[Rfam]
RNA sequence: GCCGAGCUUGGUAACGCAAGCUUCUGACCCAAGUGGGGGCAUUAAGGUGAUAUGGACUUUGGGCUUCUUCAGCUGGCUGGGCCUGAUGGGGCUGUUUGCCGGCCCGCCCGUUCCAAGCGGGGAGUUGGACCGUGUGGCCUAGGCGAAGGCUUGGGCUUCCUGGUUCCUAGAGCGGUGGAUACUGCGUCAGGCUGGCUUCACAGAGCAGCGAGAACCACCCGCUUUCUGCAGUGGAAGGAUAACGGGCUGCUGUCUCCUUGGCCCAACAAAGCCUGAUGGGUAAGCCCAAUUGGACAAUCACUUUU
Numbered sequence: 001g002c003c004g005a006g007c008u009u010g011g012u013a014a015c016g017c018a019a020g021c022u023u024c025u026g027a028c029c030c031a032a033g034u035g036g037g038g039g040c041a042u043u044a045a046g047g048u049g050a051u052a053u054g055g056a057c058u059u060u061g062g063g064c065u066u067c068u069u070c071a072g073c074u075g076g077c078u079g080g081g082c083c084u085g086a087u088g089g090g091g092c093u094g095u096u097u098g099c100c101g102g103c104c105c106g107c108c109c110g111u112u113c114c115a116a117g118c119g120g121g122g123a124g125u126u127g128g129a130c131c132g133u134g135u136g137g138c139c140u141a142g143g144c145g146a147a148g149g150c151u152u153g154g155g156c157u158u159c160c161u162g163g164u165u166c167c168u169a170g171a172g173c174g175g176u177g178g179a180u181a182c183u184g185c186g187u188c189a190g191g192c193u194g195g196c197u198u199c200a201c202a203g204a205g206c207a208g209c210g211a212g213a214a215c216c217a218c219c220c221g222c223u224u225u226c227u228g229c230a231g232u233g234g235a236a237g238g239a240u241a242a243c244g245g246g247c248u249g250c251u252g253u254c255u256c257c258u259u260g261g262c263c264c265a266a267c268a269a270a271g272c273c274u275g276a277u278g279g280g281u282a283a284g285c286c287c288a289a290u291u292g293g294a295c296a297a298u299c300a301c302u303u304u305u
Stems, first nucleotide, its partner, number of pairs: 001040003004023007028037003044304008053296002057292001059289003062285001065282001067280001069279003073275001075273004079264005085258001088256004093252002100249007108238002111236005117229009127166006134159001136157009167172001174219005183212001185210003192203003

This 305-nucleotide RNA sequence from Striga hermonthica belongs to the Rfam family "Plant signal recognition particle RNA". The literature on the family includes a 2002 paper in Nucleic Acids Res by Regalia et al., "Prediction of signal recognition particle RNA genes". It is annotated as a non-coding RNA gene.